[Rfam]
Shown here is a 132-nucleotide RNA sequence from Quiscalus mexicanus, a member of the family "Small nucleolar RNA SNORA77".
About the family: ACA63 (SNORA77) is a member of the H/ACA class of snoRNAs that guide the sites of modification of uridines to pseudouridines. This snoRNA was identified by computational screening and its expression in mouse experimentally verified by Northern blot and primer extension analysis.
The match comes from Rfam's covariance-model search (46 bits).
It is annotated as an H/ACA-box small nucleolar RNA.
RNA sequence: GCAGACUCACUCUGUGCUGAACUGCAGCCUUCAGUUCAGGUGCUUUUCUGUCUGCAAGAGUAAGAGCUCACAGGAGUGACGAUGGCCUUCUUUGCUGUGGAAGGCUGUUACAGUUGCUGUUGGGACAUGGCU
Numbered sequence: 001g002c003a004g005a006c007u008c009a010c011u012c013u014g015u016g017c018u019g020a021a022c023u024g025c026a027g028c029c030u031u032c033a034g035u036u037c038a039g040g041u042g043c044u045u046u047u048c049u050g051u052c053u054g055c056a057a058g059a060g061u062a063a064g065a066g067c068u069c070a071c072a073g074g075a076g077u078g079a080c081g082a083u084g085g086c087c088u089u090c091u092u093u094g095c096u097g098u099g100g101a102a103g104g105c106u107g108u109u110a111c112a113g114u115u116g117c118u119g120u121u122g123g124g125a126c127a128u129g130g131c132u
Stems, first nucleotide, its partner, number of pairs: 001055006014043003017039004022034003067123002070120004075114001077112002083107009